Rfam assigns this 109-nucleotide RNA from Candidatus Uabimicrobium amorphum to the family "Group II catalytic intron D1-D4-2".
Its family is annotated with Group II intron splicing in the Gene Ontology.
It scores 48 bits against the family's covariance model.
Lineage of the source: Bacteria > Pseudomonadati > Planctomycetota > Candidatus Uabimicrobiales > Candidatus Uabimicrobium.
[Rfam]
RNA sequence: UAAGGAAGACCCCUUGUAACCAGCUUGCAGAAGAAGGUUGCAAACCACCUUACGCUGCUGUAAUAAAGAGUUAUGGUAGGAUGAAAUAGUGCCAGACUCGAGUGCAGGU
Number, nucleotide and partner (000 for none) at each position: 001u000002a014003a000004g012005g011006a000007a000008g000009a000010c000011c005012c004013c000014u002015u000016g041017u040018a039019a038020c037021c036022a000023g000024c033025u032026u031027g000028c000029a000030g000031a026032a025033g024034a000035a000036g021037g020038u019039u018040g017041c016042a000043a000044a000045c000046c108047a000048c000049c083050u000051u081052a000053c000054g000055c079056u000057g077058c076059u075060g000061u073062a072063a071064u070065a000066a000067a000068g000069a000070g064071u063072u062073a061074u000075g059076g058077u057078a000079g055080g000081a051082u000083g049084a000085a000086a000087u000088a000089g105090u104091g103092c102093c000094a000095g000096a000097c000098u000099c000100g000101a000102g092103u091104g090105c089106a000107g000108g046109u000